[Rfam]
RNA sequence: UACGAGCGCUAUGGGACGGGGACAUAGACAAGAGGUGAGCGCCUGUCCUGUGUACCUCUUGUCUAUGUCCCCGUCCCAUAGCGCUCGUA
Numbered sequence: 001u002a003c004g005a006g007c008g009c010u011a012u013g014g015g016a017c018g019g020g021g022a023c024a025u026a027g028a029c030a031a032g033a034g035g036u037g038a039g040c041g042c043c044u045g046u047c048c049u050g051u052g053u054a055c056c057u058c059u060u061g062u063c064u065a066u067g068u069c070c071c072c073g074u075c076c077c078a079u080a081g082c083g084c085u086c087g088u089a
Base pairs, nucleotide, nucleotide: 001089002088003087004086006084007083008082009081014076015075016074017073019071020070021069022068023067028062029061030060031059032058034056035055036054037047038046
RNA: mir-25 microRNA precursor family